[Rfam]
RNA sequence: AGCCUUGCGCAGUGGCAGUAUCGUAGCCGAUGAGGGUAUUCCGAGGCGCGAUUAUUGCUAGUUGAAAACUUUUCCCAAUACCCCGCCAUGACGACUUGAAAUAUAGUCGGCAUUGGCAAUUUUUGA
Dot-bracket structure: ...................(((((.(((.....(((...)))..))))))))................................((((((.(((((........))))).))).))).........
About this RNA
This 126-nucleotide RNA from Hylia prasina belongs to the Rfam family "U4 spliceosomal RNA". A search with the family's covariance model found it, with a score of 113 bits. The base pairs follow the family's consensus structure, which is taken from published work. The organism belongs to Hylia, within Eukaryota. It is annotated as a spliceosomal small nuclear RNA.